[Rfam]
A member of the RNA family "ZMP/ZTP riboswitch aptamer (pfl RNA motif)" from Marinisporobacter balticus, 80 nucleotides long.
RNA sequence: CAUAAAUCAUGCGACUGGCGGAAGUGGAAUGAACCACAUGGAGCAUGAUUGAAUAAAAGCCGACCGCCUGGGCACAAAAG
Number, nucleotide and partner (000 for none) at each position: 001c000002a000003u052004a000005a050006a049007u048008c047009a046010u045011g044012c043013g000014a000015c040016u000017g068018g067019c066020g065021g064022a000023a000024g037025u036026g035027g034028a000029a000030u000031g000032a000033a000034c027035c026036a025037c024038a000039u000040g015041g000042a000043g012044c011045a010046u009047g008048a007049u006050u005051g000052a003053a000054u000055a000056a000057a000058a000059g073060c072061c071062g000063a000064c021065c020066g019067c018068c017069u000070g000071g061072g060073c059074a000075c000076a000077a000078a000079a000080g000
Taxonomically the source falls in Marinisporobacter (Bacteria, Bacillati, Bacillota, Clostridia).